[Rfam]
RNA sequence: UGUUUCAAAGAUUAAGCCAUGCAUGUACAAGUACAAACUUGAAUAAAGUUGAAACCGCAGACGGCUCAUUAAAUCAGUCAUAAAUAAUGAAAUAUCGAAAAAACAGUUACUUGGAUAACUGUGGAAAAUCCAGAGCUAAUACAUGCACUUAAGCUCGGACAAUCGUUGUAACAAACGAUACAGAAGAGCGCAAUUAUUAGGUUUCAAUAAAAGUUAUUUUAUUGGAUGACUCCGGAUAAUCCUAGUCGAGCGCAUAUGAUCUUAGUAUCAGCGCCAUAUUUCAUAAGAGACUGCCUUAUCAGCUUUCGAUUGUAAUUUAAAUGAUUACAAUGGCAAUAACGGGUAACGGGGAAUCAGGGUUCGAUUCCGGAGAGGGAGCCUGAAAAACGGCUACCACAUCUAAGGAAGGCAGCAGGCACGUAAAUUACCCACUCUCAGUUCGAGGAGGUAGUGACGAAAAAUACCGGUGACUUACUCUAAUAAGGGUUUUGUCACCUAAUUAUAAAAGGAAUGAGUUUAUUCUAAAAAUAUAUUCAAUUACCUAUUGGAGGGCAAGUCUGGUGCCAGCAGCCGCGGUAAUACCAGCUCCAAU
Numbered sequence: 001u002g003u004u005u006c007a008a009a010g011a012u013u014a015a016g017c018c019a020u021g022c023a024u025g026u027a028c029a030a031g032u033a034c035a036a037a038c039u040u041g042a043a044u045a046a047a048g049u050u051g052a053a054a055c056c057g058c059a060g061a062c063g064g065c066u067c068a069u070u071a072a073a074u075c076a077g078u079c080a081u082a083a084a085u086a087a088u089g090a091a092a093u094a095u096c097g098a099a100a101a102a103a104c105a106g107u108u109a110c111u112u113g114g115a116u117a118a119c120u121g122u123g124g125a126a127a128a129u130c131c132a133g134a135g136c137u138a139a140u141a142c143a144u145g146c147a148c149u150u151a152a153g154c155u156c157g158g159a160c161a162a163u164c165g166u167u168g169u170a171a172c173a174a175a176c177g178a179u180a181c182a183g184a185a186g187a188g189c190g191c192a193a194u195u196a197u198u199a200g201g202u203u204u205c206a207a208u209a210a211a212a213g214u215u216a217u218u219u220u221a222u223u224g225g226a227u228g229a230c231u232c233c234g235g236a237u238a239a240u241c242c243u244a245g246u247c248g249a250g251c252g253c254a255u256a257u258g259a260u261c262u263u264a265g266u267a268u269c270a271g272c273g274c275c276a277u278a279u280u281u282c283a284u285a286a287g288a289g290a291c292u293g294c295c296u297u298a299u300c301a302g303c304u305u306u307c308g309a310u311u312g313u314a315a316u317u318u319a320a321a322u323g324a325u326u327a328c329a330a331u332g333g334c335a336a337u338a339a340c341g342g343g344u345a346a347c348g349g350g351g352a353a354u355c356a357g358g359g360u361u362c363g364a365u366u367c368c369g370g371a372g373a374g375g376g377a378g379c380c381u382g383a384a385a386a387a388c389g390g391c392u393a394c395c396a397c398a399u400c401u402a403a404g405g406a407a408g409g410c411a412g413c414a415g416g417c418a419c420g421u422a423a424a425u426u427a428c429c430c431a432c433u434c435u436c437a438g439u440u441c442g443a444g445g446a447g448g449u450a451g452u453g454a455c456g457a458a459a460a461a462u463a464c465c466g467g468u469g470a471c472u473u474a475c476u477c478u479a480a481u482a483a484g485g486g487u488u489u490u491g492u493c494a495c496c497u498a499a500u501u502a503u504a505a506a507a508g509g510a511a512u513g514a515g516u517u518u519a520u521u522c523u524a525a526a527a528a529u530a531u532a533u534u535c536a537a538u539u540a541c542c543u544a545u546u547g548g549a550g551g552g553c554a555a556g557u558c559u560g561g562u563g564c565c566a567g568c569a570g571c572c573g574c575g576g577u578a579a580u581a582c583c584a585g586c587u588c589c590a591a592u
Stems, first nucleotide, its partner, number of pairs: 003459004009452001010419001016417003020414003025058002031055002037050001065372003075293003081287001085285001090281004110145001112143002119135002122132003153189004194239005207227002210219003250274004257270004295343003302334003309331008347369004351362004374395002377392003397408001399406002425450001427449003433445004476508001478506001480503004485496003515535001517532001519531002545591006558585004567574002
Dot-bracket structure: ..((((..((.....(((.(((..((....((....(............)...)).))......(((.......(((...(...(....((((................(.((.....((.(((.....))).))......)).).......((((.............................))))....(((((........((.(((....)))......)).......)))))..........((((...((((......))))))))...))))...).)...))).(((....(((....((((((((.......)))))))))))......)))...((((((((....))))...))))))).((.(((..........))).)).(.((....)).)...)))))).).....(.(((...((((.....)))).)))).)...))))................(.(.((((.(((......)))...))))..).)......(.(.((.........)))..).........((((((.......((((.....((....)).......)))))))))).
RNA: Eukaryotic small subunit ribosomal RNA, nucleotides 33 to 624